[Rfam]
RNA sequence: GUUGGCAGCUUAGAGGCCACAGCAGAAGCACUCAUGGCACAGCCCUGUCAGAUUCCAGCGAAUUUGUGAUUUCUGCU
Number, nucleotide and partner (000 for none) at each position: 001g000002u000003u000004g000005g000006c000007a000008g000009c000010u000011u000012a000013g045014a000015g044016g043017c042018c000019a000020c000021a077022g076023c075024a074025g073026a072027a071028g040029c000030a000031c000032u000033c000034a000035u000036g000037g000038c000039a000040c028041a000042g017043c016044c015045c013046u000047g000048u000049c066050a065051g064052a063053u062054u061055c060056c000057a000058g000059c000060g055061a054062a053063u052064u051065u050066g049067u000068g000069a000070u000071u027072u026073c025074u024075g023076c022077u021
The record is a 77-nucleotide RNA sequence from Alligator mississippiensis, which matches "Mammalian CPEB3 ribozyme" in Rfam. The source organism's lineage runs through Eukaryota, Metazoa, Teleostomi, Dipnotetrapodomorpha and Alligator. A search with the family's covariance model found it, with a score of 47 bits.